The family of this 491-nucleotide part of an RNA from Chromerida sp. RM11 is "Eukaryotic large subunit ribosomal RNA". The family's consensus secondary structure is taken from published work. The literature on the family includes a 2001 paper in Science by Yusupov et al., "Crystal structure of the ribosome at 5.5 A resolution".
RNA sequence: UACGCCGAAGUUUCCCUCAGGAUAGCUGCAGUCUGAUCCAGUUUUAUCAGGUAAAGCGAAUGAUUAGAGGCAUUGGGGAAGCGAUUUCCUCGACCUAUUCUCAAACUUUAAAUGGGUAAGAUGGUGUCGUUACUUAAUUGAACGACGUCGGUUAAUGUGGACUGUAAGUGGGCCAUUUUUUGGUAAGCAGAACUGGCGAUGAGGGAUGAACCUAACGUCUGGUUAAGGUGUCCAAAUGCUGGCUCAUCAGAUACCAUAAAAGGUGUGACCUGACAAUGACAACAGGACGGUGGUCAUGGAAGUUGAAAUCCGCUCAGGAGUGUGUAACAACUCACCUGUCUAGUCAGGCUGCCCUGAAAAUGGAUGACGCUGAAGCCGGUUACCGAUACCAGACCAUCGUUGCAAAUGCGAUGCUUCGAUGAGUAGGCGUACGUGGAGGUUGUGACGCAGCUUUUGACGUGAGUCUGAGUGAAACAGCCUCUAGUGCAGAU
Numbered sequence: 001u002a003c004g005c006c007g008a009a010g011u012u013u014c015c016c017u018c019a020g021g022a023u024a025g026c027u028g029c030a031g032u033c034u035g036a037u038c039c040a041g042u043u044u045u046a047u048c049a050g051g052u053a054a055a056g057c058g059a060a061u062g063a064u065u066a067g068a069g070g071c072a073u074u075g076g077g078g079a080a081g082c083g084a085u086u087u088c089c090u091c092g093a094c095c096u097a098u099u100c101u102c103a104a105a106c107u108u109u110a111a112a113u114g115g116g117u118a119a120g121a122u123g124g125u126g127u128c129g130u131u132a133c134u135u136a137a138u139u140g141a142a143c144g145a146c147g148u149c150g151g152u153u154a155a156u157g158u159g160g161a162c163u164g165u166a167a168g169u170g171g172g173c174c175a176u177u178u179u180u181u182g183g184u185a186a187g188c189a190g191a192a193c194u195g196g197c198g199a200u201g202a203g204g205g206a207u208g209a210a211c212c213u214a215a216c217g218u219c220u221g222g223u224u225a226a227g228g229u230g231u232c233c234a235a236a237u238g239c240u241g242g243c244u245c246a247u248c249a250g251a252u253a254c255c256a257u258a259a260a261a262g263g264u265g266u267g268a269c270c271u272g273a274c275a276a277u278g279a280c281a282a283c284a285g286g287a288c289g290g291u292g293g294u295c296a297u298g299g300a301a302g303u304u305g306a307a308a309u310c311c312g313c314u315c316a317g318g319a320g321u322g323u324g325u326a327a328c329a330a331c332u333c334a335c336c337u338g339u340c341u342a343g344u345c346a347g348g349c350u351g352c353c354c355u356g357a358a359a360a361u362g363g364a365u366g367a368c369g370c371u372g373a374a375g376c377c378g379g380u381u382a383c384c385g386a387u388a389c390c391a392g393a394c395c396a397u398c399g400u401u402g403c404a405a406a407u408g409c410g411a412u413g414c415u416u417c418g419a420u421g422a423g424u425a426g427g428c429g430u431a432c433g434u435g436g437a438g439g440u441u442g443u444g445a446c447g448c449a450g451c452u453u454u455u456g457a458c459g460u461g462a463g464u465c466u467g468a469g470u471g472a473a474a475c476a477g478c479c480u481c482u483a484g485u486g487c488a489g490a491u
Stems, first nucleotide, its partner, number of pairs: 001431006011024001013022003027166007042121007054109001055107002061103003066098001068096003073093006080086001123149009172197004178192005202213003217394005223388001227384003236381001238380001241377003261355003265352003269348006282339005288312003294306002313317001318333001322331002395421005402414002432486001434483010450470002456465003